[Rfam]
RNA: Mammalian CPEB3 ribozyme
RNA sequence: AACUGUCAUGAUGGCUAUAGCAGAAGCGCUCAUAUCAUGGCCCUGUCAGAUUCGAAUGAAUCUGAGAAUUCUGCU
Numbered sequence: 001a002a003c004u005g006u007c008a009u010g011a012u013g014g015c016u017a018u019a020g021c022a023g024a025a026g027c028g029c030u031c032a033u034a035u036c037a038u039g040g041c042c043c044u045g046u047c048a049g050a051u052u053c054g055a056a057u058g059a060a061u062c063u064g065a066g067a068a069u070u071c072u073g074c075u
Stems, first nucleotide, its partner, number of pairs: 010043001013042004019075007026038001028036001047064007